[Rfam]
RNA sequence: AUGAAGCUAGCGGAAGAGACCCCGGCGGGGCGCCGAAGGAGCACGCUUGCAGCUCGCCAGUUGCACAGCUAAACUCUCAGGCAAAAGGACCGCUCAGCGGACA
Numbered sequence: 001a002u003g004a005a006g007c008u009a010g011c012g013g014a015a016g017a018g019a020c021c022c023c024g025g026c027g028g029g030g031c032g033c034c035g036a037a038g039g040a041g042c043a044c045g046c047u048u049g050c051a052g053c054u055c056g057c058c059a060g061u062u063g064c065a066c067a068g069c070u071a072a073a074c075u076c077u078c079a080g081g082c083a084a085a086a087g088g089a090c091c092g093c094u095c096a097g098c099g100g101a102c103a
Base pairs, nucleotide, nucleotide: 006098007097008096009094010093011092012091013090020030021029022028023027032082033081034080035078036077039076040075041074045069046068
This 103-nucleotide RNA sequence from a Selenomonadales bacterium belongs to the Rfam family "Glycine riboswitch aptamer". Lineage of the source: Bacteria > Bacillati > Bacillota > Negativicutes > Selenomonadales. It scores 58 bits against the family's covariance model. The base pairs follow the family's consensus structure.